A member of the RNA family "ffh sRNA" from Paracoccus caeni, 52 nucleotides long.
The match comes from Rfam's covariance-model search (67 bits).
For this family Rfam cites "Identification of candidate structured RNAs in the marine organism 'Candidatus Pelagibacter ubique'" (Meyer et al., BMC Genomics, 2009).
The family's RNA type in Rfam is small RNA.
Pairs were carried over by alignment from the consensus structure, which is taken from published work.
[Rfam]
RNA sequence: CGAUACGGGGAUCGCCCCCCGUCAGCGCGUUGCGCCCACGGGGGCAAUAUUG
Numbered sequence: 001c002g003a004u005a006c007g008g009g010g011a012u013c014g015c016c017c018c019c020c021g022u023c024a025g026c027g028c029g030u031u032g033c034g035c036c037c038a039c040g041g042g043g044g045c046a047a048u049a050u051u052g
Base pairs, nucleotide, nucleotide: 016044017043018042019041020040021039022038025035026034027033028032